[Rfam]
RNA: tRNA
Organism: Mucilaginibacter gotjawali
RNA sequence: GCCCGGAUGGCGAAAUUGGUAAACGUUGCGGUCUCAGAAGCCGUUGAGAAUUGUCUCUUGAGAGUUCGAGUCUCUCUUCGGGCA
Numbered sequence: 001g002c003c004c005g006g007a008u009g010g011c012g013a014a015a016u017u018g019g020u021a022a023a024c025g026u027u028g029c030g031g032u033c034u035c036a037g038a039a040g041c042c043g044u045u046g047a048g049a050a051u052u053g054u055c056u057c058u059u060g061a062g063a064g065u066u067c068g069a070g071u072c073u074c075u076c077u078u079c080g081g082g083c084a
Stems, first nucleotide, its partner, number of pairs: 001083007010026003028044005060076005